[Rfam]
RNA sequence: AUGGAGGACGGGUGGCAGGAACGUCUGCAUGGUUCUUGAGAGCUGCAUAAGCAGUACAGCAGUACAAGGAUGGAGGACAAUGGCUGAGCUGAGCUGAGCCUUUCCUCAUCAAUCAACAGCAUCUGUCCAUGCCUUUCAUGGCCUUCUUCCCUGGCUUCCAGUUCCAGAUGGCUUGGUGAGGCGCGGACAGAGACCGGCAAGUCAGAAAUCGGCAAUGGUGAGCUCCUAUAGGAGCCUA
Numbered sequence: 001a002u003g004g005a006g007g008a009c010g011g012g013u014g015g016c017a018g019g020a021a022c023g024u025c026u027g028c029a030u031g032g033u034u035c036u037u038g039a040g041a042g043c044u045g046c047a048u049a050a051g052c053a054g055u056a057c058a059g060c061a062g063u064a065c066a067a068g069g070a071u072g073g074a075g076g077a078c079a080a081u082g083g084c085u086g087a088g089c090u091g092a093g094c095u096g097a098g099c100c101u102u103u104c105c106u107c108a109u110c111a112a113u114c115a116a117c118a119g120c121a122u123c124u125g126u127c128c129a130u131g132c133c134u135u136u137c138a139u140g141g142c143c144u145u146c147u148u149c150c151c152u153g154g155c156u157u158c159c160a161g162u163u164c165c166a167g168a169u170g171g172c173u174u175g176g177u178g179a180g181g182c183g184c185g186g187a188c189a190g191a192g193a194c195c196g197g198c199a200a201g202u203c204a205g206a207a208a209u210c211g212g213c214a215a216u217g218g219u220g221a222g223c224u225c226c227u228a229u230a231g232g233a234g235c236c237u238a
Base pairs, nucleotide, nucleotide: 061106062105119194122193123190124189125188126187132181133180134179222235223234224233225232
The family of this 238-nucleotide RNA sequence from Digitaria exilis is "Early nodulin 40". Taxonomically the source falls in Digitaria (Eukaryota, Viridiplantae, Tracheophyta, Mesangiospermae). The family has 35 seed sequences and 341 matches in Rfam 15.1. Gene Ontology term of the family: nodulation. The base pairs follow the family's consensus structure, which is taken from published work. It scores 84 bits against the family's covariance model.